[Rfam]
RNA: mir-71 microRNA precursor family
RNA sequence: GCUACAUGAAAGACAAGGUAGUGAGACAAUAAUUAAAAAAAAACAUCUCACUACCCAUGUCUUUCAUAAAGCA
Numbered sequence: 001g002c003u004a005c006a007u008g009a010a011a012g013a014c015a016a017g018g019u020a021g022u023g024a025g026a027c028a029a030u031a032a033u034u035a036a037a038a039a040a041a042a043a044c045a046u047c048u049c050a051c052u053a054c055c056c057a058u059g060u061c062u063u064u065c066a067u068a069a070a071g072c073a
Base pairs, nucleotide, nucleotide: 008065009064010063011062012061013060014059015058017055018054020052021051022050023049024048025047026046